[Rfam]
RNA sequence: CACUCCUGUUUCUGCCUCAUAUUCCCUUCCAUGGAAUCAUGGGUCUAAUUAUGGAGGAGAGGAAGCCUUCCAUCGGACAAAUGGCUUUGAUACAUUCGUUUGACCCGAUGGCUGGAUCGUGCCCACAUUCGUCGUGCUCCCGAGCUUGCUCUGGAAGACGGAUUGGGGCUACAGCU
Numbered sequence: 001c002a003c004u005c006c007u008g009u010u011u012c013u014g015c016c017u018c019a020u021a022u023u024c025c026c027u028u029c030c031a032u033g034g035a036a037u038c039a040u041g042g043g044u045c046u047a048a049u050u051a052u053g054g055a056g057g058a059g060a061g062g063a064a065g066c067c068u069u070c071c072a073u074c075g076g077a078c079a080a081a082u083g084g085c086u087u088u089g090a091u092a093c094a095u096u097c098g099u100u101u102g103a104c105c106c107g108a109u110g111g112c113u114g115g116a117u118c119g120u121g122c123c124c125a126c127a128u129u130c131g132u133c134g135u136g137c138u139c140c141c142g143a144g145c146u147u148g149c150u151c152u153g154g155a156a157g158a159c160g161g162a163u164u165g166g167g168g169c170u171a172c173a174g175c176u
Base pairs, nucleotide, nucleotide: 003056004055005054006053016043017042018041019040021037022036023035024034025033066115067114070111071110072109073108074107075106076105078102079101080100081099082098121169122168123167124166127164129162130161138155139154140153142151143150144149

Notes:
This 176-nucleotide RNA from Suhomyces tanzawaensis belongs to the Rfam family "Small nucleolar RNA snR43". The family's RNA type in Rfam is H/ACA-box small nucleolar RNA. A search with the family's covariance model found it, with a score of 96 bits. Its Rfam clan is "SNORA9 clan".